[Rfam]
RNA sequence: AGAACGCGCCUUUCAGGCAUCCUCUCCUAAAACUUUUCAAGGCCGGUCCCUAGGGAUCGGCCCUUUUUUUGCGCUCA
Numbered sequence: 001a002g003a004a005c006g007c008g009c010c011u012u013u014c015a016g017g018c019a020u021c022c023u024c025u026c027c028u029a030a031a032a033c034u035u036u037u038c039a040a041g042g043c044c045g046g047u048c049c050c051u052a053g054g055g056a057u058c059g060g061c062c063c064u065u066u067u068u069u070u071g072c073g074c075u076c077a
Stems, first nucleotide, its partner, number of pairs: 008018004041062009
The family of this 77-nucleotide sequence from Sphingobium boeckii is "Makes More Granules Regulator RNA (mmgR)".
It is annotated as a small RNA.
The base pairs follow the family's consensus structure.
Taxonomically the source falls in Sphingobium (Bacteria, Pseudomonadati, Pseudomonadota, Sphingomonadales).